[Rfam]
RNA sequence: UCCCUGGUGGUCUAGUGGUUAGGAUUCGGCGCUCUCACCGCCGCGGCCCGGGUUCGAUUCCCGGUCAGGGAA
Numbered sequence: 001u002c003c004c005u006g007g008u009g010g011u012c013u014a015g016u017g018g019u020u021a022g023g024a025u026u027c028g029g030c031g032c033u034c035u036c037a038c039c040g041c042c043g044c045g046g047c048c049c050g051g052g053u054u055c056g057a058u059u060c061c062c063g064g065u066c067a068g069g070g071a072a
Stems, first nucleotide, its partner, number of pairs: 001071007010025004027043005048064005

This 72-nucleotide RNA belongs to the Rfam family "tRNA". Rfam classes the family as a transfer RNA.